[Rfam]
Source information
Shown here is a 208-nucleotide RNA sequence from Clostridium puniceum, a member of the family "Group II catalytic intron D1-D4-5". Rfam 15.1 lists 720 matches to the family in 418 species. About the family: Group II introns are found in rRNA, tRNA and mRNA of organelles in fungi, plants and protists, and also in mRNA in bacteria. A search with the family's covariance model found it, with a score of 156 bits.
RNA sequence: UAGAACUAAUUUCUCGAUUAGUCGAAUGAUAGAGUAACGUCUUGAAAGGCUAACCUUGAUACUCCGAAUAGCGUUUAUAUUAUAAGAUAUAAAGGUUAUACGCUCGGUGAAGUCAGUUGAGAGAACACCCUAAGUAUGAGGGAUCCCUAACAUACAGGAAAUGCGAACCAGAGAUGGUCGAGUGUUUGAUAGGCUGGAGGUCUAUAAA
Numbered sequence: 001u002a003g004a005a006c007u008a009a010u011u012u013c014u015c016g017a018u019u020a021g022u023c024g025a026a027u028g029a030u031a032g033a034g035u036a037a038c039g040u041c042u043u044g045a046a047a048g049g050c051u052a053a054c055c056u057u058g059a060u061a062c063u064c065c066g067a068a069u070a071g072c073g074u075u076u077a078u079a080u081u082a083u084a085a086g087a088u089a090u091a092a093a094g095g096u097u098a099u100a101c102g103c104u105c106g107g108u109g110a111a112g113u114c115a116g117u118u119g120a121g122a123g124a125a126c127a128c129c130c131u132a133a134g135u136a137u138g139a140g141g142g143a144u145c146c147c148u149a150a151c152a153u154a155c156a157g158g159a160a161a162u163g164c165g166a167a168c169c170a171g172a173g174a175u176g177g178u179c180g181a182g183u184g185u186u187u188g189a190u191a192g193g194c195u196g197g198a199g200g201u202c203u204a205u206a207a208a
Base pairs, nucleotide, nucleotide: 018053019052020051021050022049023048031043032042034040054200055199056198057197064107065106066105067104068099069098070097071096072095074093075092076091077090078089079088080087081086114196115195116194117193118192123187124186125185126184127183128182129158130157131156136153137152162181164180165179167178168177169176170175